[Rfam]
RNA sequence: CGCUUAUCAUGAGUGGUGGAGGAAUCUGGUCCUAUGAUCCCACGGCAACCGUUUGUUUCAAGCAAAUAAGGUGCCAAAUCCAGCAGCUAACUAGCUGAAAGAUAAGAA
Numbered sequence: 001c002g003c004u005u006a007u008c009a010u011g012a013g014u015g016g017u018g019g020a021g022g023a024a025u026c027u028g029g030u031c032c033u034a035u036g037a038u039c040c041c042a043c044g045g046c047a048a049c050c051g052u053u054u055g056u057u058u059c060a061a062g063c064a065a066a067u068a069a070g071g072u073g074c075c076a077a078a079u080c081c082a083g084c085a086g087c088u089a090a091c092u093a094g095c096u097g098a099a100a101g102a103u104a105a106g107a108a
Base pairs, nucleotide, nucleotide: 003106004105005104006103007102008101013043014042015041016040021032022031023030026083027082028081029080044075045074046073047072049071050070051067052066053065054064079100084097085096086095087094088093
The family of this 108-nucleotide RNA sequence from Paraliobacillus sp. PM-2 is "SAM riboswitch aptamer (S box leader)". Rfam describes the family as follows. The SAM riboswitch is found upstream of a number of genes which code for proteins involved in methionine or cysteine biosynthesis in Gram-positive bacteria. The base pairs follow the family's consensus structure, which is taken from published work.